[Rfam]
RNA sequence: CCCCUUGGAGAUGAGGAGUUCAGCACCCACGUGCUCAAUGGUCUUGAUGAUGAUUAUGACAAUCUCGUCGAGAAUAUUCAUGGUCGUGAGGCGCCACUUCCGCCACGAGAGCUAUAUGCACGUCUUCUGGGUCGUGAGC
Numbered sequence: 001c002c003c004c005u006u007g008g009a010g011a012u013g014a015g016g017a018g019u020u021c022a023g024c025a026c027c028c029a030c031g032u033g034c035u036c037a038a039u040g041g042u043c044u045u046g047a048u049g050a051u052g053a054u055u056a057u058g059a060c061a062a063u064c065u066c067g068u069c070g071a072g073a074a075u076a077u078u079c080a081u082g083g084u085c086g087u088g089a090g091g092c093g094c095c096a097c098u099u100c101c102g103c104c105a106c107g108a109g110a111g112c113u114a115u116a117u118g119c120a121c122g123u124c125u126u127c128u129g130g131g132u133c134g135u136g137a138g139c
Stems, first nucleotide, its partner, number of pairs: 004138004088106001090104003

The family of this 139-nucleotide RNA from Triticum aestivum is "Small nucleolar RNA Z247". NCBI's taxonomy places the organism under Eukaryota, Tracheophyta, Petrosaviidae, Triticinae, Triticum. Rfam links the family to the GO terms nucleolus and RNA processing. The base pairs follow the family's consensus structure, which was predicted with PFOLD.